Background:
This 69-nucleotide RNA from Callosobruchus maculatus belongs to the Rfam family "mir-34 microRNA precursor family". Pairs were carried over by alignment from the consensus structure, which was predicted with RNAalifold. For this family Rfam cites "Numerous microRNPs in neuronal cells containing novel microRNAs" (Dostie et al., RNA, 2003). Human mir-34a was discovered computationally and later experimentally verified. The family is grouped with related families in Rfam's "mir-34 clan".
RNA sequence: ACACGGUGGCAGUGUGGUUAGCUGGUUGUGAUGUUUGAACCACGACCACUAUCCAUACUUCCUCCGUGA
Number, nucleotide and partner (000 for none) at each position: 001a000002c068003a067004c066005g065006g064007u000008g062009g061010c000011a059012g058013u057014g056015u055016g054017g053018u000019u051020a050021g049022c000023u048024g047025g046026u045027u044028g043029u042030g041031a000032u000033g000034u000035u000036u000037g000038a000039a000040c000041c030042a029043c028044g027045a026046c025047c024048a023049c021050u020051a019052u000053c017054c016055a015056u014057a013058c012059u011060u000061c009062c008063u000064c006065c005066g004067u003068g002069a000
The family has 113 seed sequences and 2,256 matches in Rfam 15.1. It scores 60 bits against the family's covariance model. Its family is annotated with miRNA-mediated post-transcriptional gene silencing and RISC complex in the Gene Ontology.